[Rfam]
Rfam assigns this 392-nucleotide sequence from a Microbacteriaceae bacterium to the family "Bacterial RNase P class A".
Gene Ontology terms of the family: dimeric ribonuclease P complex, ribonuclease P activity and tRNA processing.
The organism belongs to Microbacteriaceae, within Bacteria.
RNA sequence: UGGGUCGACAAGACGGUCGCGUCGUCCGUCAGGCCGUAAGGAACCGACGGGUGCCGAGGAACGUCCGGGCUCCACAGAGCGGGGCGGUGGGUAACCCCCACCCGGAGUAAUCCGCGAGACAGUGCAACAGAGAGUAAACCGCCACGGGCUUCGGCCCGAGGUAAGGGUGAAACGGUGGUGUAAGAGACCACCAGCGAUUCGGGUGACCGAUCGGCUAGGUAAACCUCGCCCGGAGCAAGGUCAGACAGGGAACGCUAAGGCUGCUCGCCGAGUUCCCGGGUAGACCGCUAGAGGGCUGCGGCAACGUAUCCCCGAGAUAGAUGGCCGUCCACGGUCGCGCAUCGCAAGAUGAGUGGCUGAGACAGAACCCGGCGUAAUAGUCGGCCCAUUCG
Numbered sequence: 001u002g003g004g005u006c007g008a009c010a011a012g013a014c015g016g017u018c019g020c021g022u023c024g025u026c027c028g029u030c031a032g033g034c035c036g037u038a039a040g041g042a043a044c045c046g047a048c049g050g051g052u053g054c055c056g057a058g059g060a061a062c063g064u065c066c067g068g069g070c071u072c073c074a075c076a077g078a079g080c081g082g083g084g085c086g087g088u089g090g091g092u093a094a095c096c097c098c099c100a101c102c103c104g105g106a107g108u109a110a111u112c113c114g115c116g117a118g119a120c121a122g123u124g125c126a127a128c129a130g131a132g133a134g135u136a137a138a139c140c141g142c143c144a145c146g147g148g149c150u151u152c153g154g155c156c157c158g159a160g161g162u163a164a165g166g167g168u169g170a171a172a173c174g175g176u177g178g179u180g181u182a183a184g185a186g187a188c189c190a191c192c193a194g195c196g197a198u199u200c201g202g203g204u205g206a207c208c209g210a211u212c213g214g215c216u217a218g219g220u221a222a223a224c225c226u227c228g229c230c231c232g233g234a235g236c237a238a239g240g241u242c243a244g245a246c247a248g249g250g251a252a253c254g255c256u257a258a259g260g261c262u263g264c265u266c267g268c269c270g271a272g273u274u275c276c277c278g279g280g281u282a283g284a285c286c287g288c289u290a291g292a293g294g295g296c297u298g299c300g301g302c303a304a305c306g307u308a309u310c311c312c313c314g315a316g317a318u319a320g321a322u323g324g325c326c327g328u329c330c331a332c333g334g335u336c337g338c339g340c341a342u343c344g345c346a347a348g349a350u351g352a353g354u355g356g357c358u359g360a361g362a363c364a365g366a367a368c369c370c371g372g373c374g375u376a377a378u379a380g381u382c383g384g385c386c387c388a389u390u391c392g
Stems, first nucleotide, its partner, number of pairs: 001388009012329007020056002023053008061375003065372005070235004077266004082231005087101005102116001103114004117226002122224002124220002139166002141162003145158005174192006194215001195213003199210004239286004248277006259269003293312003297308004